This 98-nucleotide RNA sequence from Firmicutes bacterium CAG:449 belongs to the Rfam family "Purine riboswitch aptamer". The source organism's lineage runs through Bacteria, Bacillati and Bacillota. Pairs were carried over by alignment from the consensus structure, which is taken from published work. A search with the family's covariance model found it, with a score of 59 bits.
RNA sequence: GUCGAAAUUAAGUAGACAAUUCGUAUAAUUACCCUAAUCGGUGGGAAAGUCUCUACGCUGGACCGUAAUUCAGCACUACGAAUAAAGAUCUAUAUUUU
Numbered sequence: 001g002u003c004g005a006a007a008u009u010a011a012g013u014a015g016a017c018a019a020u021u022c023g024u025a026u027a028a029u030u031a032c033c034c035u036a037a038u039c040g041g042u043g044g045g046a047a048a049g050u051c052u053c054u055a056c057g058c059u060g061g062a063c064c065g066u067a068a069u070u071c072a073g074c075a076c077u078a079c080g081a082a083u084a085a086a087g088a089u090c091u092a093u094a095u096u097u098u
Base pairs, nucleotide, nucleotide: 019083020082021081022080023079024078025077029048030047032045033044034043057074058073059072060071061070062069